[Rfam]
RNA sequence: GUUCCUGCUUCAACAGUGUUUGGAUGGAAC
Numbered sequence: 001g002u003u004c005c006u007g008c009u010u011c012a013a014c015a016g017u018g019u020u021u022g023g024a025u026g027g028a029a030c
Stems, first nucleotide, its partner, number of pairs: 001030005007025001009024005014018001

Background:
Rfam assigns this 30-nucleotide RNA from Pan troglodytes to the family "Iron response element I". Lineage of the source: Eukaryota > Amniota > Mammalia > Theria > Pan. A search with the family's covariance model found it, with a score of 38 bits. The family's RNA type in Rfam is cis-regulatory element.